[Rfam]
RNA sequence: AAUGGAAGUGGCUGAGGUUUAAAAUAAGUAUUUUAAGCUUAGGAAAGUCCAUGUUAGCACAUGCUGCGAUUGCAUGUAGUGUUUGUGUCUAAGGAAUUAAUAACUUAGAGUACUGUAAAAAGUAACGGCGUUUUUUAGCUCUAAGGAUUGUAAUAAUUACAUUAUUUUAAUCUAUGAGAUAAAAACUGAAAGUGUCACAGAGACGAGUUAAUUAGAAAUAAUUAAGUGAAACGCGAUAAACCCCUCAAGCUAACAACCCAAAAUAAUGGUAGGGGCAUGCAAAGCGAUUAAAUGAAAUCAGUUUUGCACUACUUAUUAGUAGAAGAUAAAUAGUCACACUUGUUUAACAAGAACAGAACAUGGCUUAUGCAC
Number, nucleotide and partner (000 for none) at each position: 001a000002a000003u000004g372005g370006a368007a000008g337009u336010g335011g334012c333013u332014g000015a040016g039017g038018u037019u036020u035021a034022a033023a032024a000025u000026a000027a000028g000029u000030a000031u000032u023033u022034u021035a020036a019037g018038c017039u016040u015041a000042g000043g000044a000045a366046a365047g364048u000049c363050c362051a361052u360053g359054u253055u252056a251057g250058c249059a077060c076061a075062u074063g073064c072065u000066g000067c000068g000069a000070u000071u000072g064073c063074a062075u061076g060077u059078a000079g000080u000081g000082u000083u248084u247085g246086u000087g244088u109089c108090u107091a106092a105093g104094g000095a000096a000097u000098u000099a000100a000101u000102a000103a000104c093105u092106u091107a090108g089109a088110g126111u124112a123113c122114u121115g000116u000117a000118a000119a000120a000121a114122g113123u112124a111125a000126c110127g243128g242129c000130g186131u185132u184133u183134u000135u000136u000137a000138g000139c178140u177141c176142u000143a000144a000145g173146g172147a171148u170149u169150g168151u000152a000153a000154u000155a000156a000157u000158u000159a000160c000161a000162u000163u000164a000165u000166u000167u000168u150169a149170a148171u147172c146173u145174a000175u000176g141177a140178g139179a000180u000181a000182a000183a133184a132185a131186c130187u000188g000189a000190a000191a000192g241193u240194g237195u236196c235197a000198c000199a000200g000201a000202g000203a000204c000205g000206a000207g000208u225209u224210a223211a222212u221213u220214a219215g000216a000217a000218a000219u214220a213221a212222u211223u210224a209225a208226g000227u000228g000229a000230a000231a000232c000233g000234c000235g196236a195237u194238a000239a000240a193241c192242c128243c127244c087245u000246c085247a084248a083249g058250c057251u056252a055253a054254c000255a000256a000257c274258c273259c272260a000261a000262a000263a000264u000265a000266a000267u000268g000269g000270u000271a000272g259273g258274g257275g000276c000277a000278u308279g307280c306281a305282a304283a303284g302285c000286g000287a000288u000289u000290a000291a000292a000293u000294g000295a000296a000297a000298u000299c000300a000301g000302u284303u283304u282305u281306g280307c279308a278309c322310u321311a320312c319313u318314u000315a000316u000317u000318a313319g312320u311321a310322g309323a000324a000325g000326a000327u000328a000329a000330a000331u000332a013333g012334u011335c010336a009337c008338a000339c351340u350341u349342g348343u347344u000345u000346a000347a343348c342349a341350a340351g339352a000353a000354c000355a000356g000357a000358a000359c053360a052361u051362g050363g049364c047365u046366u045367a000368u006369g000370c005371a000372c004

Bacterial RNase P class B: a 372-nucleotide RNA from 'Catharanthus roseus' aster yellows phytoplasma. It scores 224 bits against the family's covariance model. The organism belongs to 16SrI (Aster yellows group), within Bacteria. Its family is annotated with dimeric ribonuclease P complex, tRNA processing and ribonuclease P activity in the Gene Ontology. For this family Rfam cites "Ribonuclease P: unity and diversity in a tRNA processing ribozyme" (Frank and Pace, Annu Rev Biochem, 1998). Rfam describes the family as follows. Ribonuclease P (RNase P) is a ubiquitous endoribonuclease, found in archaea, bacteria and eukarya as well as chloroplasts and mitochondria. Its best characterised activity is the generation of mature 5'-ends of tRNAs by cleaving the 5'-leader elements of precursor-tRNAs.